[Rfam]
RNA sequence: GCACGACAAGGGCAAAAUCACUGAAAAGUGAUGACGCAAAGCUAUAGGGACUAAUUUGGCAUGUGUAUAUGUCCAAAAUGUCAGCCAGCUGCCAAC
Numbered sequence: 001g002c003a004c005g006a007c008a009a010g011g012g013c014a015a016a017a018u019c020a021c022u023g024a025a026a027a028g029u030g031a032u033g034a035c036g037c038a039a040a041g042c043u044a045u046a047g048g049g050a051c052u053a054a055u056u057u058g059g060c061a062u063g064u065g066u067a068u069a070u071g072u073c074c075a076a077a078a079u080g081u082c083a084g085c086c087a088g089c090u091g092c093c094a095a096c
Stems, first nucleotide, its partner, number of pairs: 012037002017032006040090004047086002049082003056076004
Rfam assigns this 96-nucleotide RNA sequence from Paenibacillus silvestris to the family "c-di-GMP-I riboswitch aptamer". The base pairs follow the family's consensus structure, which is taken from published work. About the family: GEMM was predicted in a large-scale screen for bacterial structured RNA regulatory elements. Its family is annotated with cyclic-di-GMP binding in the Gene Ontology. A search with the family's covariance model found it, with a score of 74 bits. Lineage of the source: Bacteria > Bacillati > Bacilli > Paenibacillaceae > Paenibacillus.